RNA sequence: AGUUGAUAAAGCCACAACCGUCGUGAGGCGGUGUCGGAAAGCCAAGGAUCUCCAAGGAGACAGCCGGGUUACCUUC
Numbered sequence: 001a002g003u004u005g006a007u008a009a010a011g012c013c014a015c016a017a018c019c020g021u022c023g024u025g026a027g028g029c030g031g032u033g034u035c036g037g038a039a040a041g042c043c044a045a046g047g048a049u050c051u052c053c054a055a056g057g058a059g060a061c062a063g064c065c066g067g068g069u070u071a072c073c074u075u076c
Base pairs, nucleotide, nucleotide: 012037013036017032018031019030020029021028022027040070041069042068043067046065047064049060050059051058052057
RNA: c-di-GMP-I riboswitch aptamer
Organism: Candidatus Electrothrix marina